[Rfam]
RNA sequence: GCCCGGGAGAGGGGGCUGGUGCUCCCCCGGGGCUGCAAACCCCGUGGGCCCCCGGAGAGAGGGGUGCUGACUGGUUCGAUUCCAGCCCCGGCC
Numbered sequence: 001g002c003c004c005g006g007g008a009g010a011g012g013g014g015g016c017u018g019g020u021g022c023u024c025c026c027c028c029g030g031g032g033c034u035g036c037a038a039a040c041c042c043c044g045u046g047g048g049c050c051c052c053c054g055g056a057g058a059g060a061g062g063g064g065u066g067c068u069g070a071c072u073g074g075u076u077c078g079a080u081u082c083c084a085g086c087c088c089c090g091g092c093c
Base pairs, nucleotide, nucleotide: 001093003091004090005089006088007087011026012025013024014023015022016021027046028044029043030042031041032040048065049064050063051062052061071085072084073083074082

Source information
Selenocysteine transfer RNA: a 93-nucleotide RNA sequence from Thermosulfurimonas marina. The base pairs follow the family's consensus structure, which is taken from published work.